[Rfam]
RNA sequence: AUAAUACCUGGCAGGGGAGAUUCCAUGAUCAUGAAGGUGGUUGUCCUAGGGCAAGGCUUAUCCAUUGCACUCCAGAUGUGCUGACCCCUACAAUUUCCCCAAAUGUGGGAAACUCAACUGCAUAAUUUGUGGUAGUGGGGGAUUGUAUUUUCACUUUCCCCUG
Dot-bracket structure: ..........((((((((.(..((((..........)))).).))))((((...(((.((((............)))).)))...))))...((((.((.......)).))).)...))))...............((((((..((......))..)))))).
RNA: U1 spliceosomal RNA
Organism: Otolemur garnettii